[Rfam]
RNA sequence: UGGGCAUCAAUGAUGAGUUAUUCCUUUUUGUUAUCCUUGCACUUUGAUUGCCAGUGAAGAAACUUAUGGGGGACAAUUGACUCUGAGAUGCUU
Numbered sequence: 001u002g003g004g005c006a007u008c009a010a011u012g013a014u015g016a017g018u019u020a021u022u023c024c025u026u027u028u029u030g031u032u033a034u035c036c037u038u039g040c041a042c043u044u045u046g047a048u049u050g051c052c053a054g055u056g057a058a059g060a061a062a063c064u065u066a067u068g069g070g071g072g073a074c075a076a077u078u079g080a081c082u083c084u085g086a087g088a089u090g091c092u093u
Stems, first nucleotide, its partner, number of pairs: 002093007
This 93-nucleotide RNA sequence from Rhododendron williamsianum belongs to the Rfam family "Small nucleolar RNA snoR26". Gene Ontology terms of the family: nucleolus and RNA processing. A reference for the family is Brown et al. (2001), "Multiple snoRNA gene clusters from Arabidopsis", RNA. The source organism's lineage runs through Eukaryota, Streptophytina, eudicotyledons, asterids and Rhododendron. The base pairs follow the family's consensus structure, which was predicted with WAR.